[Rfam]
RNA sequence: CGCACCGAGGGGCGCUGCGACCUGCGCAAGGCAGGCCAGGCUCGAUGCGGGCAACACGCAACAACGGCGCCCUUCCCCG
Numbered sequence: 001c002g003c004a005c006c007g008a009g010g011g012g013c014g015c016u017g018c019g020a021c022c023u024g025c026g027c028a029a030g031g032c033a034g035g036c037c038a039g040g041c042u043c044g045a046u047g048c049g050g051g052c053a054a055c056a057c058g059c060a061a062c063a064a065c066g067g068c069g070c071c072c073u074u075c076c077c078c079g
Stems, first nucleotide, its partner, number of pairs: 002048003006044003021035005
Record summary:
Rfam assigns this 79-nucleotide RNA sequence from Alkalisalibacterium limincola to the family "SAH (S-adenosyl-L-homocysteine) riboswitch aptamer". NCBI's taxonomy places the organism under Bacteria, Pseudomonadati, Lysobacterales, Lysobacteraceae, Alkalisalibacterium. It scores 55 bits against the family's covariance model. The family has 52 seed sequences and 1,354 matches in Rfam 15.1.